The record is a 98-nucleotide RNA sequence from Acer saccharum, which matches "mir-166 microRNA precursor family" in Rfam. On this family, see Reinhart et al., Genes Dev 2002: "MicroRNAs in plants". Rfam links the family to the GO terms miRNA-mediated post-transcriptional gene silencing and RISC complex. This family represents the plant microRNA (miRNA) precursor mir-166.
RNA sequence: GUUUAGGGGAAUGCUGUCUGGUUCGAGACCAUUCGCUUGCAAGUUAAGUUUCAUGGCAUGUUUUGAAUGAUCUCGGACCAGGCUUCAUUCCCCUCAAC
Numbered sequence: 001g002u003u004u005a006g007g008g009g010a011a012u013g014c015u016g017u018c019u020g021g022u023u024c025g026a027g028a029c030c031a032u033u034c035g036c037u038u039g040c041a042a043g044u045u046a047a048g049u050u051u052c053a054u055g056g057c058a059u060g061u062u063u064u065g066a067a068u069g070a071u072c073u074c075g076g077a078c079c080a081g082g083c084u085u086c087a088u089u090c091c092c093c094u095c096a097a098c
Base pairs, nucleotide, nucleotide: 001098002097003096005094006093007092008091009090010089011088012087013086016083017082018081019080020079021078024075025074026073